[Rfam]
RNA sequence: UCCAGAAGCAUUGUACCCAGGGUCUGACGGCCAGACAUUGCACCUGGAGCGUUUCUGUUUUCUAAUAAAAGCAGUUG
Numbered sequence: 001u002c003c004a005g006a007a008g009c010a011u012u013g014u015a016c017c018c019a020g021g022g023u024c025u026g027a028c029g030g031c032c033a034g035a036c037a038u039u040g041c042a043c044c045u046g047g048a049g050c051g052u053u054u055c056u057g058u059u060u061u062c063u064a065a066u067a068a069a070a071g072c073a074g075u076u077g
Stems, first nucleotide, its partner, number of pairs: 005055003008050002017047004022036005